About this RNA
The record is a 102-nucleotide RNA sequence from Bacillus sp. FJAT-18017, which matches "Purine riboswitch aptamer" in Rfam.
RNA sequence: AAUUGAAUCGUACGCAACCUUCAUAUAUCCUCGAUGAUAUGGAUCGAAAGUCUCUACCGGGCCACCGUAAAUGGCCUGACUAUGAAGGCAGUAAUUUCAGGG
Numbered sequence: 001a002a003u004u005g006a007a008u009c010g011u012a013c014g015c016a017a018c019c020u021u022c023a024u025a026u027a028u029c030c031u032c033g034a035u036g037a038u039a040u041g042g043a044u045c046g047a048a049a050g051u052c053u054c055u056a057c058c059g060g061g062c063c064a065c066c067g068u069a070a071a072u073g074g075c076c077u078g079a080c081u082a083u084g085a086a087g088g089c090a091g092u093a094a095u096u097u098c099a100g101g102g
Base pairs, nucleotide, nucleotide: 018088019087020086021085022084023083024082025081031047032046033045034044035043058078059077060076061075062074063073064072
Source information:
Lineage of the source: Bacteria > Bacillota > Bacilli > Bacillaceae > Bacillus. A search with the family's covariance model found it, with a score of 86 bits.